[Rfam]
RNA sequence: GUCUGUGGUGGCUCAGUAUUCAGUGUAGGGUCUGUCUGAUAUAAUUGCACAGCUACAUCUGAUUACUGGGUCACUAAUGACAUUA
Numbered sequence: 001g002u003c004u005g006u007g008g009u010g011g012c013u014c015a016g017u018a019u020u021c022a023g024u025g026u027a028g029g030g031u032c033u034g035u036c037u038g039a040u041a042u043a044a045u046u047g048c049a050c051a052g053c054u055a056c057a058u059c060u061g062a063u064u065a066c067u068g069g070g071u072c073a074c075u076a077a078u079g080a081c082a083u084u085a
Base pairs, nucleotide, nucleotide: 013069014068015067016066017065018064020062021061022060023058024057025056026055027054028053032052033051034050035049
The record is an 85-nucleotide RNA sequence from Acipenser ruthenus, which matches "mir-221 microRNA precursor family" in Rfam. A reference for the family is Soares et al. (2009), "Parallel DNA pyrosequencing unveils new zebrafish microRNAs", BMC Genomics. The organism belongs to Acipenser, within Eukaryota.